Background
The record is a 114-nucleotide RNA from Falsochrobactrum shanghaiense, which matches "Alphaproteobacterial ar14" in Rfam. NCBI's taxonomy places the organism under Bacteria, Pseudomonadati, Pseudomonadota, Alphaproteobacteria, Falsochrobactrum. Smr14C2 was renamed NfeR1 (Nodule Formation Efficiency RNA) highly expressed in salt stress and during the symbiotic interaction on legume roots. Gene Ontology term of the family: biological process involved in symbiotic interaction. It scores 86 bits against the family's covariance model. Pairs were carried over by alignment from the consensus structure. A reference for the family is del Val et al. (2012), "A survey of sRNA families in alpha-proteobacteria", RNA Biol.

RNA sequence: AGUUGUCACCGGGGUCUCCUCCUCCCAUCCCUGGUGAUCGAAAGGCCGGAACUCCUCCUCCCAAUCCGGUCUUCCCGAUAACACCCGUCGCUCCUCCCGCGACGGGUGUUUUAU
Numbered sequence: 001a002g003u004u005g006u007c008a009c010c011g012g013g014g015u016c017u018c019c020u021c022c023u024c025c026c027a028u029c030c031c032u033g034g035u036g037a038u039c040g041a042a043a044g045g046c047c048g049g050a051a052c053u054c055c056u057c058c059u060c061c062c063a064a065u066c067c068g069g070u071c072u073u074c075c076c077g078a079u080a081a082c083a084c085c086c087g088u089c090g091c092u093c094c095u096c097c098c099g100c101g102a103c104g105g106g107u108g109u110u111u112u113a114u
Stems, first nucleotide, its partner, number of pairs: 007036008042073009081109011